[Rfam]
RNA sequence: CUGCGGUGCAUUGUAGUUGCAUUGCAUGUACAAUUAAGUGUGCAAUGUAUCUGCUUUGCAACGCAG
Numbered sequence: 001c002u003g004c005g006g007u008g009c010a011u012u013g014u015a016g017u018u019g020c021a022u023u024g025c026a027u028g029u030a031c032a033a034u035u036a037a038g039u040g041u042g043c044a045a046u047g048u049a050u051c052u053g054c055u056u057u058g059c060a061a062c063g064c065a066g
Base pairs, nucleotide, nucleotide: 001066002065003064004063006062007060008059009058010057013054014053015052016051019048021046022045023044024043025042026041027040

The family of this 66-nucleotide RNA sequence from Neogobius melanostomus is "mir-33 microRNA precursor family".
Taxonomically the source falls in Neogobius (Eukaryota, Bilateria, Clupeocephala, Gobioidei).
On this family, see Li et al., BMC Genomics 2009: "Direct sequencing and expression analysis of a large number of miRNAs in Aedes aegypti and a multi-species survey of novel mosquito miRNAs".
The family has 73 seed sequences and 1,467 matches in Rfam 15.1.